[Rfam]
Nucleotides: 053
Base pairs, nucleotide, nucleotide: 006047007046009044010043011042012041022036023035024034025033026032027031
Number, partner (000 for none) and nucleotide at each position: 001000a002000g003000g004000g005000c006047g007046g008000a009044c010043c011042g012041g013000g014000c015000c016000c017000c018000u019000c020000u021000g022036a023035c024034g025033a026032c027031a028000u029000g030000g031027u032026g033025u034024c035023g036022u037000g038000a039000u040000g041012u042011c043010g044009g045000a046007c047006c048000g049000c050000c051000g052000g053000g